[Rfam]
RNA: Acido-Lenti-1 RNA
Organism: Desulfonema magnum
RNA sequence: CCCGGCAAUAAAUUGCCGGGCUAUUUUCGGUCGUCCCUACGGGACU
Numbered sequence: 001c002c003c004g005g006c007a008a009u010a011a012a013u014u015g016c017c018g019g020g021c022u023a024u025u026u027u028c029g030g031u032c033g034u035c036c037c038u039a040c041g042g043g044a045c046u
Base pairs, nucleotide, nucleotide: 001020002019003018004017005016006015007014008013033045034044035043036042037041